[Rfam]
RNA sequence: AAGGUGAUAUUUGUUUUAGAAUUCCUACGCUUUACCGGUUUUUUUAAAUGGCAAAGCGUUUGAAGUCUAAAACAAAAGCACA
Numbered sequence: 001a002a003g004g005u006g007a008u009a010u011u012u013g014u015u016u017u018a019g020a021a022u023u024c025c026u027a028c029g030c031u032u033u034a035c036c037g038g039u040u041u042u043u044u045u046a047a048a049u050g051g052c053a054a055a056g057c058g059u060u061u062g063a064a065g066u067c068u069a070a071a072a073c074a075a076a077a078g079c080a081c082a
Base pairs, nucleotide, nucleotide: 010076011075012074013073014072015071016070017069018068019067020066022064023063024062027059028058029057030056031055032054033053035051036050